S4-Clostridia ribosomal protein leader: a 60-nucleotide sequence. Its Rfam clan is "Ribosomal Protein S4 Leader clan".
[Rfam]
RNA sequence: GAAAGGCUGCGCGGUCGCGCGGCUGGGAGUGAAAAAAACUUUUCUUACUCCCCAAUUUGA
Numbered sequence: 001g002a003a004a005g006g007c008u009g010c011g012c013g014g015u016c017g018c019g020c021g022g023c024u025g026g027g028a029g030u031g032a033a034a035a036a037a038a039c040u041u042u043u044c045u046u047a048c049u050c051c052c053c054a055a056u057u058u059g060a
Stems, first nucleotide, its partner, number of pairs: 005024008025052007